[Rfam]
RNA sequence: GAAGCCUGCCAGACCGCCGCUGGUGCAAGUCUCGAAAGAGCGCACUGGAGGAACGUCCGGACUGCACAGGACAGCGUAGGAGCUAACGGCUCUCCACCGUGAGGUGAGGAUCAGAGCAACAGAGACGAGUCACCGUGGGUGCCGCACCGGAGGCGAAAGCCGAAGGUACGAGCAUCCAAGGUGGGUGAAACGGGCAAUCUCUACGCGCAGCAACACCAAGUAGGCCAGUAUUGAGGUGGUUCCGCUGAGCUGGCGGGUAGGUGGCACCGAGCCGGGUGGGCGACCCCCGGCCCAGAUUGAUGGCGGUCACGCGGCCGGGCAACCGGGCGCGCACAGAAUCCGGCGUAUCGGCAGACUUCACAC
Numbered sequence: 001g002a003a004g005c006c007u008g009c010c011a012g013a014c015c016g017c018c019g020c021u022g023g024u025g026c027a028a029g030u031c032u033c034g035a036a037a038g039a040g041c042g043c044a045c046u047g048g049a050g051g052a053a054c055g056u057c058c059g060g061a062c063u064g065c066a067c068a069g070g071a072c073a074g075c076g077u078a079g080g081a082g083c084u085a086a087c088g089g090c091u092c093u094c095c096a097c098c099g100u101g102a103g104g105u106g107a108g109g110a111u112c113a114g115a116g117c118a119a120c121a122g123a124g125a126c127g128a129g130u131c132a133c134c135g136u137g138g139g140u141g142c143c144g145c146a147c148c149g150g151a152g153g154c155g156a157a158a159g160c161c162g163a164a165g166g167u168a169c170g171a172g173c174a175u176c177c178a179a180g181g182u183g184g185g186u187g188a189a190a191c192g193g194g195c196a197a198u199c200u201c202u203a204c205g206c207g208c209a210g211c212a213a214c215a216c217c218a219a220g221u222a223g224g225c226c227a228g229u230a231u232u233g234a235g236g237u238g239g240u241u242c243c244g245c246u247g248a249g250c251u252g253g254c255g256g257g258u259a260g261g262u263g264g265c266a267c268c269g270a271g272c273c274g275g276g277u278g279g280g281c282g283a284c285c286c287c288c289g290g291c292c293c294a295g296a297u298u299g300a301u302g303g304c305g306g307u308c309a310c311g312c313g314g315c316c317g318g319g320c321a322a323c324c325g326g327g328c329g330c331g332c333a334c335a336g337a338a339u340c341c342g343g344c345g346u347a348u349c350g351g352c353a354g355a356c357u358u359c360a361c362a363c
Stems, first nucleotide, its partner, number of pairs: 001359004006354005011348001012308007020048007053346003057343005062210004070241002074206005079093005094108001095106004109201002114199002116195002130184005136178007214263004224254006235246004271291006278285002
Shown here is a 363-nucleotide sequence from Ottowia flava, a member of the family "Bacterial RNase P class A". Its family is annotated with tRNA processing, dimeric ribonuclease P complex and ribonuclease P activity in the Gene Ontology. Taxonomically the source falls in Ottowia (Bacteria, Pseudomonadati, Pseudomonadota, Betaproteobacteria). Ribonuclease P (RNase P) is a ubiquitous endoribonuclease, found in archaea, bacteria and eukarya as well as chloroplasts and mitochondria.